[Rfam]
RNA: Ribosomal protein L20 leader
Organism: Fructilactobacillus fructivorans
RNA sequence: AGUCAAAAGCAGAAGCUUCCCGCUUCUCGCCUGAGUGAUUUUGAUCGCUGGGCAAUCUACGAAUGAAAGUCCUAAUAUUUUUAGGUGUAGCGGGUGCUUUGUGGCAUCCGCUAUUUUUCUGCUUA
Numbered sequence: 001a002g003u004c005a006a007a008a009g010c011a012g013a014a015g016c017u018u019c020c021c022g023c024u025u026c027u028c029g030c031c032u033g034a035g036u037g038a039u040u041u042u043g044a045u046c047g048c049u050g051g052g053c054a055a056u057c058u059a060c061g062a063a064u065g066a067a068a069g070u071c072c073u074a075a076u077a078u079u080u081u082u083a084g085g086u087g088u089a090g091c092g093g094g095u096g097c098u099u100u101g102u103g104g105c106a107u108c109c110g111c112u113a114u115u116u117u118u119c120u121g122c123u124u125a
Stems, first nucleotide, its partner, number of pairs: 011027006029053003035048005089112010